[Rfam]
The family of this 219-nucleotide RNA from Nonomuraea pusilla is "Actinobacteria sRNA Ms_IGR-5". By type it is a small RNA. The literature on the family includes a 2013 paper in RNA by Li et al., "Identification of small RNAs in Mycobacterium smegmatis using heterologous Hfq". The base pairs follow the family's consensus structure. It scores 69 bits against the family's covariance model. The organism belongs to Nonomuraea, within Bacteria.
RNA sequence: ACGCGGAAAGGAGGUGGUCCGAACAAUGGUGAUUCAUAGUUGGACUAGCGAGGUGGUUGUCCGCUGACGACGCGGACUUCCCUGUCUCGUGUCGUUGGCGAAUACGAGGCAACCACCGGGGCCCCGCGGCAGCCGGAGGGGCGGGAUCACAGAUCCCGGCCCAGUAGUCCGUCCGGCCCGCCUGAUCAGCAGGCGGAGUACGCCCGGGGCCCUUCCCUU
Numbered sequence: 001a002c003g004c005g006g007a008a009a010g011g012a013g014g015u016g017g018u019c020c021g022a023a024c025a026a027u028g029g030u031g032a033u034u035c036a037u038a039g040u041u042g043g044a045c046u047a048g049c050g051a052g053g054u055g056g057u058u059g060u061c062c063g064c065u066g067a068c069g070a071c072g073c074g075g076a077c078u079u080c081c082c083u084g085u086c087u088c089g090u091g092u093c094g095u096u097g098g099c100g101a102a103u104a105c106g107a108g109g110c111a112a113c114c115a116c117c118g119g120g121g122c123c124c125c126g127c128g129g130c131a132g133c134c135g136g137a138g139g140g141g142c143g144g145g146a147u148c149a150c151a152g153a154u155c156c157c158g159g160c161c162c163a164g165u166a167g168u169c170c171g172u173c174c175g176g177c178c179c180g181c182c183u184g185a186u187c188a189g190c191a192g193g194c195g196g197a198g199u200a201c202g203c204c205c206g207g208g209g210c211c212c213u214u215c216c217c218u219u
Stems, first nucleotide, its partner, number of pairs: 013061006062100007070092004075086003118213009128204003